[Rfam]
RNA sequence: CCCUCCUAUAAAGGUGCCUUGGGUUCCUUGUCUUUGGACAUGUAAGAAUUGGAGGCAAAAGAAAUUGUGGAUUUGGUGACAUCUGGGCCAGCUUGUUGCCUGCAGGCUCCAAAUCAACCAUCUCACAUAA
Numbered sequence: 001c002c003c004u005c006c007u008a009u010a011a012a013g014g015u016g017c018c019u020u021g022g023g024u025u026c027c028u029u030g031u032c033u034u035u036g037g038a039c040a041u042g043u044a045a046g047a048a049u050u051g052g053a054g055g056c057a058a059a060a061g062a063a064a065u066u067g068u069g070g071a072u073u074u075g076g077u078g079a080c081a082u083c084u085g086g087g088c089c090a091g092c093u094u095g096u097u098g099c100c101u102g103c104a105g106g107c108u109c110c111a112a113a114u115c116a117a118c119c120a121u122c123u124c125a126c127a128u129a130a
Stems, first nucleotide, its partner, number of pairs: 002055005015040002018037002022028002069123003073120001090108007
The record is a 130-nucleotide RNA from Octodon degus, which matches "Small nucleolar RNA SNORA38" in Rfam. It scores 104 bits against the family's covariance model. Lineage of the source: Eukaryota > Opisthokonta > Bilateria > Gnathostomata > Octodon. The family's RNA type in Rfam is H/ACA-box small nucleolar RNA. Pairs were carried over by alignment from the consensus structure, which was predicted with RNAfold. Rfam 15.1 lists 628 matches to the family in 149 species.